eL15-Euryarchaeota ribosomal protein leader: an 87-nucleotide RNA sequence from Halolamina pelagica. The family's RNA type in Rfam is cis-regulatory leader. A search with the family's covariance model found it, with a score of 42 bits. The source organism's lineage runs through Archaea, Methanobacteriati, Halobacteria, Halobacteriales and Halolamina.
[Rfam]
RNA sequence: CCCGAUAGCUCGGGACGAAAUGUGGUCGGACGGGGCACGCGCCCCGAAAGGCGGCGGAGCCGCCGACAUCCCCGACUGAAUCGCAAG
Numbered sequence: 001c002c003c004g005a006u007a008g009c010u011c012g013g014g015a016c017g018a019a020a021u022g023u024g025g026u027c028g029g030a031c032g033g034g035g036c037a038c039g040c041g042c043c044c045c046g047a048a049a050g051g052c053g054g055c056g057g058a059g060c061c062g063c064c065g066a067c068a069u070c071c072c073c074g075a076c077u078g079a080a081u082c083g084c085a086a087g
Stems, first nucleotide, its partner, number of pairs: 001014005016083003024077005